[Rfam]
Rfam assigns this 100-nucleotide sequence from Neomoorella thermoacetica to the family "Selenocysteine transfer RNA". The family is grouped with related families in Rfam's "tRNA clan".
RNA sequence: GGGGGUGGAUCGGGCCUGGUGGCUUGCCUGGACUUCAAAUCCAGUUGGCGCGCGGGCUAACCCCGGGCGCGGUGGGUUCGAUUCCCACACACUCCCGCCA
Numbered sequence: 001g002g003g004g005g006u007g008g009a010u011c012g013g014g015c016c017u018g019g020u021g022g023c024u025u026g027c028c029u030g031g032a033c034u035u036c037a038a039a040u041c042c043a044g045u046u047g048g049c050g051c052g053c054g055g056g057c058u059a060a061c062c063c064c065g066g067g068c069g070c071g072g073u074g075g076g077u078u079c080g081a082u083u084c085c086c087a088c089a090c091a092c093u094c095c096c097g098c099c100a
Stems, first nucleotide, its partner, number of pairs: 001096007008088001011026006027047001028044005049071005073087004